[Rfam]
RNA sequence: UAACAUCUUGAUCAAUGGCCAUUGUAAGAGUAGAAGGAUCCAUGAAGCAAUAACUCUCUUUGCUGAAAUGUGCGACCAAAUAGACUCUUGAUAUUUCAUUCUUACAGUGCCCAUUGAUUAAGAUGUUA
Numbered sequence: 001u002a003a004c005a006u007c008u009u010g011a012u013c014a015a016u017g018g019c020c021a022u023u024g025u026a027a028g029a030g031u032a033g034a035a036g037g038a039u040c041c042a043u044g045a046a047g048c049a050a051u052a053a054c055u056c057u058c059u060u061u062g063c064u065g066a067a068a069u070g071u072g073c074g075a076c077c078a079a080a081u082a083g084a085c086u087c088u089u090g091a092u093a094u095u096u097c098a099u100u101c102u103u104a105c106a107g108u109g110c111c112c113a114u115u116g117a118u119u120a121a122g123a124u125g126u127u128a
Stems, first nucleotide, its partner, number of pairs: 003126016020109012033097004038092003044087002048083001050081002
MIR475 microRNA precursor family: a 128-nucleotide RNA from Populus trichocarpa. It is one of the family's seed sequences. Taxonomically the source falls in Populus (Eukaryota, Embryophyta, Tracheophyta, Saliceae). The family's consensus secondary structure was predicted with RNAalifold. Rfam links the family to the GO terms RISC complex and miRNA-mediated post-transcriptional gene silencing.